Rfam assigns this 129-nucleotide RNA from Helcobacillus massiliensis to the family "ALIL pseudoknot".
The family's RNA type in Rfam is cis-regulatory element.
Lineage of the source: Bacteria > Actinomycetota > Actinomycetes > Dermabacteraceae > Helcobacillus.
The family has 26 seed sequences and 2,146 matches in Rfam 15.1.
[Rfam]
RNA sequence: GGCUUUCUUUGCGGCGGAGCUCGACCGCCCCGGCAGGUACUAGUCGAUUUCGUCGACGCCCAUCGUGACCGGUUCGGGGUCGAGCCGAUCUGCAAGGUCUUGCGUGAGCAUGGCUGCCAGAUCGCUCCG
Numbered sequence: 001g002g003c004u005u006u007c008u009u010u011g012c013g014g015c016g017g018a019g020c021u022c023g024a025c026c027g028c029c030c031c032g033g034c035a036g037g038u039a040c041u042a043g044u045c046g047a048u049u050u051c052g053u054c055g056a057c058g059c060c061c062a063u064c065g066u067g068a069c070c071g072g073u074u075c076g077g078g079g080u081c082g083a084g085c086c087g088a089u090c091u092g093c094a095a096g097g098u099c100u101u102g103c104g105u106g107a108g109c110a111u112g113g114c115u116g117c118c119a120g121a122u123c124g125c126u127c128c129g
Base pairs, nucleotide, nucleotide: 013029014028015027016026017025075129076128077127078126079125086124087123089121090120091119092118093116094115
Dot-bracket structure: ............(((((.......))))).............................................(((((......((.((((((....................)).)))).)))))))
Rfam links the family to the GO term positive regulation of translational frameshifting.